[Rfam]
Nucleotides: 167
Stems, first nucleotide, its partner, number of pairs: 012125004016048004021043001023042002026039002050092003054086001056083003060079002063076002095120001097118001098116003102112001141166005147161001149158001151156001
Number, partner (000 for none) and nucleotide at each position: 001000a002000u003000a004000c005000u006000u007000a008000g009000c010000u011000g012125g013124c014123a015122g016048g017047g018046g019045a020000u021043a022000u023042a024041c025000a026039a027038u028000g029000a030000u031000c032000u033000c034000g035000a036000a037000g038027g039026u040000g041024g042023u043021u044000u045019u046018c047017c048016c049000a050092g051091g052090g053000c054086g055000a056083g057082g058081c059000u060079u061078a062000u063076c064075c065000a066000u067000u068000g069000c070000a071000c072000u073000c074000u075064g076063g077000c078061u079060g080000u081058g082057c083056u084000a085000c086054c087000c088000c089000c090052c091051c092050c093000c094000c095120c096000a097118a098116u099115u100114u101000u102112c103000c104000c105000a106000a107000a108000u109000g110000u111000a112102g113000g114100a115099a116098a117000c118097u119000c120095g121000g122015c123014u124013g125012c126000a127000u128000a129000a130000u131000u132000u133000a134000u135000g136000g137000u138000u139000g140000u141166g142165g143164g144163g145162g146000a147161c148000u149158g150000a151156g152000a153000u154000u155000c156151u157000g158149c159000u160000u161147g162145c163144u164143u165142c166141u167000g

Overview: U1 spliceosomal RNA: a 167-nucleotide RNA sequence from Cricetulus griseus. Rfam describes the family as follows. U1 is a small nuclear RNA (snRNA) component of the spliceosome (involved in pre-mRNA splicing). Its 5' end forms complementary base pairs with the 5' splice junction, thus defining the 5' donor site of an intron. There are significant differences in sequence and secondary structure between metazoan and yeast U1 snRNAs, the latter being much longer (568 nucleotides as compared to 164 nucleotides in human). It scores 101 bits against the family's covariance model. The family's consensus secondary structure is taken from published work.